The family of this 101-nucleotide RNA from Burkholderia plantarii is "Glycine riboswitch aptamer".
RNA sequence: GGCACGCGUCGGGAGAGCGUGCGACCGUUUGUCAUCAAACCGGUCGUGCCGCCGAAGGGGCAUACCCAGAAACUCUCAGGCAAAAGGACCGAACGCGUCGG
Number, nucleotide and partner (000 for none) at each position: 001g000002g000003c000004a000005c000006g096007c095008g094009u092010c091011g090012g089013g000014a000015g000016a000017g000018c000019g049020u048021g047022c046023g045024a044025c043026c042027g041028u000029u000030u000031g000032u000033c000034a000035u000036c000037a000038a000039a000040c000041c027042g026043g025044u024045c023046g022047u021048g020049c019050c000051g081052c080053c079054g077055a076056a000057g000058g075059g074060g073061c000062a000063u000064a000065c000066c000067c000068a000069g000070a000071a000072a000073c060074u059075c058076u055077c054078a000079g053080g052081c051082a000083a000084a000085a000086g000087g000088a000089c012090c011091g010092a009093a000094c008095g007096c006097g000098u000099c000100g000101g000

About the family: This family represents the bacterial glycine riboswitch.